[Rfam]
The record is a 54-nucleotide sequence from Acipenser ruthenus, which matches "UnaL2 LINE 3' element" in Rfam. Taxonomically the source falls in Acipenser (Eukaryota, Chordata, Teleostomi, Acipenseriformes).

RNA sequence: GCCCCUAGUCUCUGUACAUCGCUUUGGAUAAAAGCGUCUGCUAAAUGACUAAUU
Numbered sequence: 001g002c003c004c005c006u007a008g009u010c011u012c013u014g015u016a017c018a019u020c021g022c023u024u025u026g027g028a029u030a031a032a033a034g035c036g037u038c039u040g041c042u043a044a045a046u047g048a049c050u051a052a053u054u
Stems, first nucleotide, its partner, number of pairs: 013043001014041003020036006
The eel long interspersed element (LINE) UnaL2 and its partner short interspersed element (SINE) share a conserved 3' tail containing a stem-loop that is critical for their retrotransposition.